A member of the RNA family "COG3860 RNA" from Pararhodobacter marinus, 53 nucleotides long. The family's RNA type in Rfam is cis-regulatory element. The base pairs follow the family's consensus structure, which is taken from published work. The source organism's lineage runs through Bacteria, Pseudomonadota, Rhodobacterales, Paracoccaceae and Pararhodobacter.

[Rfam]
RNA sequence: CGGUCGGCAGUUCCCGAGGCGUCGCUGUCCCGCGAGGGAAGCUAAACCUGCCC
Numbered sequence: 001c002g003g004u005c006g007g008c009a010g011u012u013c014c015c016g017a018g019g020c021g022u023c024g025c026u027g028u029c030c031c032g033c034g035a036g037g038g039a040a041g042c043u044a045a046a047c048c049u050g051c052c053c
Stems, first nucleotide, its partner, number of pairs: 001016003028039004